[Rfam]
RNA sequence: UUCAAUCGCUUCUAGGGUUCCGGUUCAGCGUCACUGGUUUGAAUGCCUGGUCCAAGAGAAGCAGCUAGCCUCUGGGGCGAUCGUUUGCUCUUUUGCAGAUUGCCACGCUAGCCACACGGCGGGAUAAAAGCCCGGGAGAA
Numbered sequence: 001u002u003c004a005a006u007c008g009c010u011u012c013u014a015g016g017g018u019u020c021c022g023g024u025u026c027a028g029c030g031u032c033a034c035u036g037g038u039u040u041g042a043a044u045g046c047c048u049g050g051u052c053c054a055a056g057a058g059a060a061g062c063a064g065c066u067a068g069c070c071u072c073u074g075g076g077g078c079g080a081u082c083g084u085u086u087g088c089u090c091u092u093u094u095g096c097a098g099a100u101u102g103c104c105a106c107g108c109u110a111g112c113c114a115c116a117c118g119g120c121g122g123g124a125u126a127a128a129a130g131c132c133c134g135g136g137a138g139a140a
Stems, first nucleotide, its partner, number of pairs: 008062005015053002020050002022047001023044006064112006115135001117138001121133003
Background
Shown here is a 140-nucleotide RNA sequence from Oculatella sp. LEGE 06141, a member of the family "Guanidine-I riboswitch aptamer". Pairs were carried over by alignment from the consensus structure. This family represents a conserved RNA structure found upstream of the ykkC and yxkD genes in Bacillus subtilis and related genes in other bacteria. Lineage of the source: Bacteria > Cyanobacteriota > Cyanophyceae > Oculatellaceae > Oculatella.